[Rfam]
RNA: skipping-rope RNA
RNA sequence: AAAAUAAGAGGAUAGAAAGAGGCAGCUAUCACGCCAGAAAUGGUCUUAAAAGAGAUGCAGGGAACGCCGUCCUGCCUGAUUUA
Numbered sequence: 001a002a003a004a005u006a007a008g009a010g011g012a013u014a015g016a017a018a019g020a021g022g023c024a025g026c027u028a029u030c031a032c033g034c035c036a037g038a039a040a041u042g043g044u045c046u047u048a049a050a051a052g053a054g055a056u057g058c059a060g061g062g063a064a065c066g067c068c069g070u071c072c073u074g075c076c077u078g079a080u081u082u083a
Stems, first nucleotide, its partner, number of pairs: 002082004007077002011030005021068003032052001033044004057075005